[Rfam]
RNA sequence: AUCACCACGUUGGGCUGCACCAGCCGUGCCACGUUACGAAACCUAACGCGACGUGACUGAUGCAGGCUGACGUGAUGUGU
Numbered sequence: 001a002u003c004a005c006c007a008c009g010u011u012g013g014g015c016u017g018c019a020c021c022a023g024c025c026g027u028g029c030c031a032c033g034u035u036a037c038g039a040a041a042c043c044u045a046a047c048g049c050g051a052c053g054u055g056a057c058u059g060a061u062g063c064a065g066g067c068u069g070a071c072g073u074g075a076u077g078u079g080u
Stems, first nucleotide, its partner, number of pairs: 003079003006074008015065005021059003025055004030050001032048005